[Rfam]
RNA: c-di-GMP-I riboswitch aptamer
Organism: Methylomonas denitrificans
RNA sequence: GCGUGUAAAAGCCAAACCCGUUGUGAGGCGGGGACGGAAAGCUUCAGGUCUUAUGUCUGGGAUAGACUUCAAGAUGGCUGGGUUGUCACC
Numbered sequence: 001g002c003g004u005g006u007a008a009a010a011g012c013c014a015a016a017c018c019c020g021u022u023g024u025g026a027g028g029c030g031g032g033g034a035c036g037g038a039a040a041g042c043u044u045c046a047g048g049u050c051u052u053a054u055g056u057c058u059g060g061g062a063u064a065g066a067c068u069u070c071a072a073g074a075u076g077g078c079u080g081g082g083u084u085g086u087c088a089c090c
Stems, first nucleotide, its partner, number of pairs: 012037002017032006040084004045080003048075003055067004